The record is a 99-nucleotide RNA sequence from Sapajus apella, which matches "Y RNA" in Rfam.
The match comes from Rfam's covariance-model search (55 bits).
It is annotated as a non-coding RNA gene.
The organism belongs to Sapajus, within Eukaryota.
[Rfam]
RNA sequence: GGCUGGUCCGAAAGUAGUAGGAUAUUAUCAGAACCGAUUAACAUUAAUGCCACUAAAGUUGGUAUACAGUCUCCCACUGCCAAAUUUGACUAGCUUUUA
Dot-bracket structure: ((((((((.((...((((.((....(((.((...........................)).)))........)).)))...)...))))))))))....
Numbered sequence: 001g002g003c004u005g006g007u008c009c010g011a012a013a014g015u016a017g018u019a020g021g022a023u024a025u026u027a028u029c030a031g032a033a034c035c036g037a038u039u040a041a042c043a044u045u046a047a048u049g050c051c052a053c054u055a056a057a058g059u060u061g062g063u064a065u066a067c068a069g070u071c072u073c074c075c076a077c078u079g080c081c082a083a084a085u086u087u088g089a090c091u092a093g094c095u096u097u098u099a
Stems, first nucleotide, its partner, number of pairs: 001095008010087002015082001016078003020074002026064003030060002